RNA sequence: UAUAACAGCAAUGAAAAGAGAGAUAUGCGACAACAUACCUCUCUGGUGUAGAGCCGUUUAAGACGGUAGCGAUUUUUAGUGAUUUAUAAAAA
Numbered sequence: 001u002a003u004a005a006c007a008g009c010a011a012u013g014a015a016a017a018g019a020g021a022g023a024u025a026u027g028c029g030a031c032a033a034c035a036u037a038c039c040u041c042u043c044u045g046g047u048g049u050a051g052a053g054c055c056g057u058u059u060a061a062g063a064c065g066g067u068a069g070c071g072a073u074u075u076u077u078a079g080u081g082a083u084u085u086a087u088a089a090a091a092a
Stems, first nucleotide, its partner, number of pairs: 024037004053067006
Shown here is a 92-nucleotide RNA sequence from Enterococcus faecalis, a member of the family "RNA anti-toxin A".
Lineage of the source: Bacteria > Bacilli > Lactobacillales > Enterococcus > Enterococcus faecalis.
For this family Rfam cites "Abundance of type I toxin-antitoxin systems in bacteria: searches for new candidates and discovery of novel families" (Fozo et al., Nucleic Acids Res, 2010).
By type it is an antitoxin RNA.
The base pairs follow the family's consensus structure, which was predicted with RNAalifold.
Rfam's curators put it in the seed alignment.